U2 spliceosomal RNA: a 194-nucleotide RNA from Rhododendron simsii. Rfam's curators write: U2 is a small nuclear RNA (snRNA) component of the spliceosome (involved in pre-mRNA splicing). Complementary binding between U2 snRNA (in an area lying towards the 5' end but 3' to hairpin I) and the branchpoint sequence (BPS) of the intron results the bulging out of an unpaired adenosine, on the BPS, which initiates a nucleophilic attack at the intronic 5' splice site, thus starting the first of two transesterification reactions that mediate splicing. It is annotated as a spliceosomal small nuclear RNA. NCBI's taxonomy places the organism under Eukaryota, Tracheophyta, eudicotyledons, Gunneridae, Rhododendron.
[Rfam]
RNA sequence: AUACCUUUCUCGGCCUUCUCACAAAGAUCAAGUAUAGUAUCUGUUCUUAUUAGUUUAAUAUCUGAUAUGUGGGCCCUCGGUUCCCUCUUUAUUAAAUUAAUAUUUUUUUGAGGGAGGGAGGGCCCUCUACUGUAGCUUUAUUGGGCCUCUAAUGCGUUGCCUUGGUGUUGCACUAUUGCCUUGGCGCACCCCAA
Numbered sequence: 001a002u003a004c005c006u007u008u009c010u011c012g013g014c015c016u017u018c019u020c021a022c023a024a025a026g027a028u029c030a031a032g033u034a035u036a037g038u039a040u041c042u043g044u045u046c047u048u049a050u051u052a053g054u055u056u057a058a059u060a061u062c063u064g065a066u067a068u069g070u071g072g073g074c075c076c077u078c079g080g081u082u083c084c085c086u087c088u089u090u091a092u093u094a095a096a097u098u099a100a101u102a103u104u105u106u107u108u109u110g111a112g113g114g115a116g117g118g119a120g121g122g123c124c125c126u127c128u129a130c131u132g133u134a135g136c137u138u139u140a141u142u143g144g145g146c147c148u149c150u151a152a153u154g155c156g157u158u159g160c161c162u163u164g165g166u167g168u169u170g171c172a173c174u175a176u177u178g179c180c181u182u183g184g185c186g187c188a189c190c191c192c193a194a
Base pairs, nucleotide, nucleotide: 008027009026010025013022048067049066050065051064052063053062069085071083072082073081074080075079119150120149121148122147124145125144132141133140134139154187155186156185157184158183159182164180165179166178